[Rfam]
RNA: ZMP/ZTP riboswitch aptamer (pfl RNA motif)
RNA sequence: CGCCGUACCCGCGACUGGCGCAGCGAGGUGGAAACGACCACCGGGGAGCGACCGUAGAGGAGUGCACCGCGCGCCUGGGUGCAUCCC
Number, nucleotide and partner (000 for none) at each position: 001c000002g000003c054004c000005g052006u051007a000008c000009c000010c050011g049012c048013g000014a000015c045016u044017g075018g074019c073020g072021c071022a000023g000024c000025g000026a000027g000028g041029u040030g039031g038032a000033a000034a000035c000036g000037a000038c031039c030040a029041c028042c000043g000044g016045g015046g000047a000048g012049c011050g010051a006052c005053c000054g003055u000056a000057g000058a000059g000060g000061a000062g000063u000064g082065c081066a080067c079068c078069g000070c000071g021072c020073g019074c018075c017076u000077g000078g068079g067080u066081g065082c064083a000084u000085c000086c000087c000